[Rfam]
RNA sequence: UGAGCGCAGGCGGGAGAAUCUCAUUCGGUGGCAACACCGGAGGAGGUACCGAAGGAGUAACACCCCCAAGAAUCUCUCAGGUCACAGAAUCGCUUGUGUUAG
Numbered sequence: 001u002g003a004g005c006g007c008a009g010g011c012g013g014g015a016g017a018a019u020c021u022c023a024u025u026c027g028g029u030g031g032c033a034a035c036a037c038c039g040g041a042g043g044a045g046g047u048a049c050c051g052a053a054g055g056a057g058u059a060a061c062a063c064c065c066c067c068a069a070g071a072a073u074c075u076c077u078c079a080g081g082u083c084a085c086a087g088a089a090u091c092g093c094u095u096g097u098g099u100u101a102g
Stems, first nucleotide, its partner, number of pairs: 006097008019046004048082003051078002055076003
The record is a 102-nucleotide sequence, which matches "Glycine riboswitch aptamer" in Rfam. From the family's description: This family represents the bacterial glycine riboswitch. The match comes from Rfam's covariance-model search (46 bits).